[Rfam]
Makes More Granules Regulator RNA (mmgR): a 77-nucleotide RNA from Rhizorhabdus dicambivorans. It scores 46 bits against the family's covariance model. Lineage of the source: Bacteria > Pseudomonadati > Alphaproteobacteria > Rhizorhabdaceae > Rhizorhabdus.

RNA sequence: GGAGCAGGCCUUUCAGGCAUCCUCUCCUAAUGACUUACGGGCCGGUUCCAACGAACCGGCCCGUUUUUUUGCCCGAC
Numbered sequence: 001g002g003a004g005c006a007g008g009c010c011u012u013u014c015a016g017g018c019a020u021c022c023u024c025u026c027c028u029a030a031u032g033a034c035u036u037a038c039g040g041g042c043c044g045g046u047u048c049c050a051a052c053g054a055a056c057c058g059g060c061c062c063g064u065u066u067u068u069u070u071g072c073c074c075g076a077c
Stems, first nucleotide, its partner, number of pairs: 008018004039062009

The literature on the family includes a 2016 paper in Mol Phylogenet Evol by Lagares et al., "Phylogenetic distribution and evolutionary pattern of an alpha-proteobacterial small RNA gene that controls polyhydroxybutyrate accumulation in Sinorhizobium meliloti". Rfam classes the family as a small RNA.